[Rfam]
RNA sequence: CGACACGUCUCUGGAGAGUCUCAUACAAUGAGCGCCGAAGGGGCAAGGGAAGAAAUUCCUCAAUCUCUCAGGCAAAAGGACAGGGCCGGCACA
Numbered sequence: 001c002g003a004c005a006c007g008u009c010u011c012u013g014g015a016g017a018g019u020c021u022c023a024u025a026c027a028a029u030g031a032g033c034g035c036c037g038a039a040g041g042g043g044c045a046a047g048g049g050a051a052g053a054a055a056u057u058c059c060u061c062a063a064u065c066u067c068u069c070a071g072g073c074a075a076a077a078g079g080a081c082a083g084g085g086c087c088g089g090c091a092c093a
Stems, first nucleotide, its partner, number of pairs: 006088002009085005020032004034073003037069002041067003047060002
Description
A member of the RNA family "Glycine riboswitch aptamer" from Dialister micraerophilus, 93 nucleotides long. The pairing is the family consensus, mapped onto this sequence. From the family's description: This family represents the bacterial glycine riboswitch.